[Rfam]
RNA sequence: UUCUGCGCGGUGAUGAAGCAAAUAGUGUGGACUAGAGUUUCUGAUCUUGUAUUUGAAGACAAACCCUUGGCUGUCUGAGCGCAGAA
Number, nucleotide and partner (000 for none) at each position: 001u086002u085003c084004u083005g082006c081007g080008c079009g000010g000011u000012g000013a000014u000015g000016a000017a000018g000019c000020a000021a000022a000023u000024a000025g000026u000027g000028u000029g000030g000031a000032c000033u000034a000035g000036a000037g000038u058039u057040u056041c055042u000043g000044a000045u051046c000047u000048u000049g000050u000051a045052u000053u000054u000055g041056a040057a039058g038059a000060c000061a000062a000063a000064c000065c000066c000067u000068u000069g000070g000071c000072u000073g000074u000075c000076u000077g000078a000079g008080c007081g006082c005083a004084g003085a002086a001

Rfam assigns this 86-nucleotide sequence to the family "Small nucleolar RNA Z157/R69/R10". By type it is a C/D-box small nucleolar RNA. A reference for the family is Chen et al. (2003), "The high diversity of snoRNAs in plants: identification and comparative study of 120 snoRNA genes from Oryza sativa", Nucleic Acids Res. Clan: SNORD52 clan. Gene Ontology terms of the family: nucleolus and RNA processing.